This 157-nucleotide RNA sequence from Salix purpurea belongs to the Rfam family "MIR480 microRNA precursor family". The base pairs follow the family's consensus structure, which was predicted with WAR. The match comes from Rfam's covariance-model search (67 bits). The organism belongs to Salix, within Eukaryota. On this family, see Lu et al., Plant Cell 2005: "Novel and mechanical stress-responsive MicroRNAs in Populus trichocarpa that are absent from Arabidopsis".

RNA sequence: UAAUUUGUUUAGGGUGGGUUCUUAUUUAGUCAGGGCAAACCCAUAUUGGAUUGCCCAGAAUCACCUGUUAUGGCAACCCUAACUACAUUAAUAAUCCCUACUCACGAGAGAUCAUUACUUCAUUCAUAGACAUAUGAGAGCAAUUUGCAAACAUUUA
Numbered sequence: 001u002a003a004u005u006u007g008u009u010u011a012g013g014g015u016g017g018g019u020u021c022u023u024a025u026u027u028a029g030u031c032a033g034g035g036c037a038a039a040c041c042c043a044u045a046u047u048g049g050a051u052u053g054c055c056c057a058g059a060a061u062c063a064c065c066u067g068u069u070a071u072g073g074c075a076a077c078c079c080u081a082a083c084u085a086c087a088u089u090a091a092u093a094a095u096c097c098c099u100a101c102u103c104a105c106g107a108g109a110g111a112u113c114a115u116u117a118c119u120u121c122a123u124u125c126a127u128a129g130a131c132a133u134a135u136g137a138g139a140g141c142a143a144u145u146u147g148c149a150a151a152c153a154u155u156u157a
Base pairs, nucleotide, nucleotide: 006153007152008150009149012146014144015143019139023136024135025134029131030130031129